[Rfam]
RNA sequence: AACUGCCAUAAUGGUCAUAGCAGAAGUGCUCACGUCAUGGCCCUGUCAGAUUUUACCAAAUCUGCAAAUUCUGCU
Numbered sequence: 001a002a003c004u005g006c007c008a009u010a011a012u013g014g015u016c017a018u019a020g021c022a023g024a025a026g027u028g029c030u031c032a033c034g035u036c037a038u039g040g041c042c043c044u045g046u047c048a049g050a051u052u053u054u055a056c057c058a059a060a061u062c063u064g065c066a067a068a069u070u071c072u073g074c075u
Stems, first nucleotide, its partner, number of pairs: 013042004019075007026038003047064007
Annotation:
The record is a 75-nucleotide sequence from Crocodylus porosus, which matches "Mammalian CPEB3 ribozyme" in Rfam. Lineage of the source: Eukaryota > Opisthokonta > Archelosauria > Longirostres > Crocodylus. The match comes from Rfam's covariance-model search (57 bits).